Tryptophan operon leader: a 103-nucleotide RNA sequence from Vibrio aquimaris. For this family Rfam cites "Attenuation in amino acid biosynthetic operons" (Kolter and Yanofsky, Annu Rev Genet, 1982). Rfam's curators write: At least 6 amino acid operons are known to be regulated by attenuation. In each a leader sequence of 150-200 bp is found upstream of the first gene in the operon. This leader sequence can assume two different secondary structures known as the terminator and the anti-terminator structure.
RNA sequence: CUUUCUUGGUGGCGUACUUGGGUUCGUGCUAGGUGGGCUGAUACGUACUUGUGAUUUACUAAAUAAAUAGUAUCAAGCCCGCUUUUAAAGCGGGCUUUUUGUU
Numbered sequence: 001c002u003u004u005c006u007u008g009g010u011g012g013c014g015u016a017c018u019u020g021g022g023u024u025c026g027u028g029c030u031a032g033g034u035g036g037g038c039u040g041a042u043a044c045g046u047a048c049u050u051g052u053g054a055u056u057u058a059c060u061a062a063a064u065a066a067a068u069a070g071u072a073u074c075a076a077g078c079c080c081g082c083u084u085u086u087a088a089a090g091c092g093g094g095c096u097u098u099u100u101g102u103u
Base pairs, nucleotide, nucleotide: 009042010041012039015035016034017033018032020030021029076096077095078094079093080092081091082090083088